[Rfam]
RNA sequence: GGCCCAAAUUUGAAGUAGAGUAGAUUAGAAGGAUCAUCUGACCCUUCUAAACUACCCCACUUCGAAUUUGUGCUA
Numbered sequence: 001g002g003c004c005c006a007a008a009u010u011u012g013a014a015g016u017a018g019a020g021u022a023g024a025u026u027a028g029a030a031g032g033a034u035c036a037u038c039u040g041a042c043c044c045u046u047c048u049a050a051a052c053u054a055c056c057c058c059a060c061u062u063c064g065a066a067u068u069u070g071u072g073c074u075a
Stems, first nucleotide, its partner, number of pairs: 001074003005070005011064006018057001020055004025050006032043001034041002
RNA: mir-5928 microRNA precursor family